RNA: Potassium channel RNA editing signal
Organism: Carassius auratus
RNA sequence: GUGGGGUACGGCGACAUGCACCCGGUCACCAUAGGCGGCAAAAUCGUCGGCUCCCUGUGUGCGAUCGCGGGCGUGUUAACCAUCGCUUUGCCAGUGCCAGUCAUCGUGUCCAAC
Numbered sequence: 001g002u003g004g005g006g007u008a009c010g011g012c013g014a015c016a017u018g019c020a021c022c023c024g025g026u027c028a029c030c031a032u033a034g035g036c037g038g039c040a041a042a043a044u045c046g047u048c049g050g051c052u053c054c055c056u057g058u059g060u061g062c063g064a065u066c067g068c069g070g071g072c073g074u075g076u077u078a079a080c081c082a083u084c085g086c087u088u089u090g091c092c093a094g095u096g097c098c099a100g101u102c103a104u105c106g107u108g109u110c111c112a113a114c
Stems, first nucleotide, its partner, number of pairs: 001114002004111002007108005013102003018097004037077004050062002